[Rfam]
ZMP/ZTP riboswitch aptamer (pfl RNA motif): a 96-nucleotide sequence from Coprococcus eutactus. A search with the family's covariance model found it, with a score of 52 bits.
RNA sequence: AUGUUGGUACACGACUGGCGGAGACAGCCGAUGGCUGGUAGGAAUUACCUACAGGGAGUGUACUGUUAAGACAAGCCGACCGCCUGGGCAAGCAAA
Numbered sequence: 001a002u003g004u005u006g007g008u009a010c011a012c013g014a015c016u017g018g019c020g021g022a023g024a025c026a027g028c029c030g031a032u033g034g035c036u037g038g039u040a041g042g043a044a045u046u047a048c049c050u051a052c053a054g055g056g057a058g059u060g061u062a063c064u065g066u067u068a069a070g071a072c073a074a075g076c077c078g079a080c081c082g083c084c085u086g087g088g089c090a091a092g093c094a095a096a
Stems, first nucleotide, its partner, number of pairs: 003067001005065008015055002017084005039051004075089003